The record is a 130-nucleotide RNA from Ochotona princeps, which matches "Small nucleolar RNA SNORA11" in Rfam. A reference for the family is Gu et al. (2005), "A novel experimental approach for systematic identification of box H/ACA snoRNAs from eukaryotes", Nucleic Acids Res. Lineage of the source: Eukaryota > Bilateria > Chordata > Craniata > Ochotona. U107 (SNORA11) is a member of the H/ACA class of snoRNAs that guide the sites of modification of uridines to pseudouridines. This snoRNA was identified by RT-PCR from blood cells and its expression confirmed by Northern blot analysis. There is no predicted target for this guide snRNA. Rfam's curators put it in the seed alignment.

RNA sequence: AGGGUGUGCUCAGAACAAGGGACCUUGAAGAACGGUUCCUCUGUUUACAGCACACCCAACAGCAAUGUGGGGAAAUUGUGUUGAGGAGCAUAAAACAUGUGGUCUGUUUGUGAACACAUGUCCUACACAU
Numbered sequence: 001a002g003g004g005u006g007u008g009c010u011c012a013g014a015a016c017a018a019g020g021g022a023c024c025u026u027g028a029a030g031a032a033c034g035g036u037u038c039c040u041c042u043g044u045u046u047a048c049a050g051c052a053c054a055c056c057c058a059a060c061a062g063c064a065a066u067g068u069g070g071g072g073a074a075a076u077u078g079u080g081u082u083g084a085g086g087a088g089c090a091u092a093a094a095a096c097a098u099g100u101g102g103u104c105u106g107u108u109u110g111u112g113a114a115c116a117c118a119u120g121u122c123c124u125a126c127a128c129a130u
Stems, first nucleotide, its partner, number of pairs: 002057007013046005019040003022036003070123003077116003082112002085105003089101004